Source information:
The record is a 175-nucleotide RNA sequence from Aneurinibacillus sp. XH2, which matches "Group II catalytic intron D1-D4-3" in Rfam. Rfam's curators write: Group II introns are found in rRNA, tRNA and mRNA of organelles in fungi, plants and protists, and also in mRNA in bacteria. Rfam 15.1 lists 4,274 matches to the family in 1,585 species. The organism belongs to Aneurinibacillus, within Bacteria.
RNA sequence: UCGACCGCGAGGUCGAAUCUGAAGGAAGUCGGCGGCAAACCUACGACCUGAGGAACACGAACCUCAUAUGAGGCCAGUGCUCGCUGGAUGAGUCUGCAAUACACAAGACAAAGUCCUAACUGCCGAAGACAAGUAAAGGUAAAUGAGGCAAGUAGAUGGAGAGAAAGAUGGCACU
Numbered sequence: 001u002c003g004a005c006c007g008c009g010a011g012g013u014c015g016a017a018u019c020u021g022a023a024g025g026a027a028g029u030c031g032g033c034g035g036c037a038a039a040c041c042u043a044c045g046a047c048c049u050g051a052g053g054a055a056c057a058c059g060a061a062c063c064u065c066a067u068a069u070g071a072g073g074c075c076a077g078u079g080c081u082c083g084c085u086g087g088a089u090g091a092g093u094c095u096g097c098a099a100u101a102c103a104c105a106a107g108a109c110a111a112a113g114u115c116c117u118a119a120c121u122g123c124c125g126a127a128g129a130c131a132a133g134u135a136a137a138g139g140u141a142a143a144u145g146a147g148g149c150a151a152g153u154a155g156a157u158g159g160a161g162a163g164a165a166a167g168a169u170g171g172c173a174c175u
Stems, first nucleotide, its partner, number of pairs: 001016006028175001031172001036167001041161002044158002046153002049150002062148006073140003078135004083130001086116004092109004